[Rfam]
RNA sequence: ACUCAACGAGCUUUUAAUUCAGAGAGGUGAGUUUCCUUUGUAAAAGCAUGCUACCCUUGAGUAGACCCUUGAGCAUUGGUGUAGCCUCAAACUUGAUUUUUAGGAGUUU
Numbered sequence: 001a002c003u004c005a006a007c008g009a010g011c012u013u014u015u016a017a018u019u020c021a022g023a024g025a026g027g028u029g030a031g032u033u034u035c036c037u038u039u040g041u042a043a044a045a046g047c048a049u050g051c052u053a054c055c056c057u058u059g060a061g062u063a064g065a066c067c068c069u070u071g072a073g074c075a076u077u078g079g080u081g082u083a084g085c086c087u088c089a090a091a092c093u094u095g096a097u098u099u100u101u102a103g104g105a106g107u108u109u
Base pairs, nucleotide, nucleotide: 024088025087026086027085028084035079036078039075044070045069046068051064052063053062054061